[Rfam]
RNA sequence: AUGCCUAGGUACUGGGUGCCACCCUGUGUUUUCUGUUAUUUUUUACUAGUGAACACAGCUGGUGGUAUCUCAGUAGCUUUGCAUCC
Numbered sequence: 001a002u003g004c005c006u007a008g009g010u011a012c013u014g015g016g017u018g019c020c021a022c023c024c025u026g027u028g029u030u031u032u033c034u035g036u037u038a039u040u041u042u043u044u045a046c047u048a049g050u051g052a053a054c055a056c057a058g059c060u061g062g063u064g065g066u067a068u069c070u071c072a073g074u075a076g077c078u079u080u081g082c083a084u085c086c
Base pairs, nucleotide, nucleotide: 008077010075011074012073014071015069016068018066019065021063022062023061024058025057026056028054030052031051

A member of the RNA family "mir-317 microRNA precursor family" from Agrilus planipennis, 86 nucleotides long. The base pairs follow the family's consensus structure, which was predicted with RNAalifold. Gene Ontology terms of the family: miRNA-mediated post-transcriptional gene silencing and RISC complex. On this family, see Stark et al., Genome Res 2007: "Systematic discovery and characterization of fly microRNAs using 12 Drosophila genomes". The organism belongs to Agrilus, within Eukaryota.